RNA sequence: GAAGAGGUAUUGCCACCCUUUCUAGUCUAAUAGGGACUAGAAAGGGUGGCAAUACUCUUC
Numbered sequence: 001g002a003a004g005a006g007g008u009a010u011u012g013c014c015a016c017c018c019u020u021u022c023u024a025g026u027c028u029a030a031u032a033g034g035g036a037c038u039a040g041a042a043a044g045g046g047u048g049g050c051a052a053u054a055c056u057c058u059u060c
Base pairs, nucleotide, nucleotide: 001060002059003058004057005056008054009053010052011051012050013049014048015047016046017045018044019043020042021041022040023039024038025037026036027035
RNA: mir-5681 microRNA precursor family